[Rfam]
RNA: 6S / SsrS RNA
Organism: Filifactor alocis
Nucleotides: 183
Base pairs, nucleotide, nucleotide: 002181004179005178006177007176008175009174010173011172012171013170014169015168017167018166019165031152032151033150034149035148036147038144039143054126055125056124058122059121060120061119065116069115070114072112073111074110075109081103082102087099088098089097090096
Number, partner (000 for none) and nucleotide at each position: 001000a002181g003000c004179a005178a006177u007176c008175u009174g010173g011172g012171a013170u014169g015168u016000g017167c018166g019165u020000u021000u022000g023000u024000g025000c026000c027000u028000a029000u030000a031152a032151a033150u034149u035148c036147a037000a038144c039143c040000g041000a042000c043000a044000u045000u046000a047000u048000u049000a050000u051000u052000u053000a054126g055125g056124g057000a058122g059121c060120u061119c062000g063000a064000u065116u066000g067000u068000a069115g070114u071000u072112u073111u074110a075109u076000c077000a078000a079000a080000u081103g082102a083000c084000c085000u086000g087099c088098c089097u090096u091000c092000u093000u094000g095000a096090a097089a098088g099087g100000a101000c102082u103081u104000c105000a106000g107000c108000g109075a110074u111073a112072a113000u114070g115069u116065g117000c118000a119061g120060g121059g122058c123000a124056c125055c126054c127000a128000c129000c130000u131000g132000a133000g134000u135000u136000g137000a138000a139000c140000u141000c142000g143039g144038g145000c146000g147036u148035g149034a150033a151032u152031u153000u154000g155000c156000a157000g158000g159000u160000a161000u162000g163000u164000g165019a166018c167017g168015g169014c170013a171012u172011u173010c174009u175008g176007g177006a178005u179004u180000u181002u182000u183000g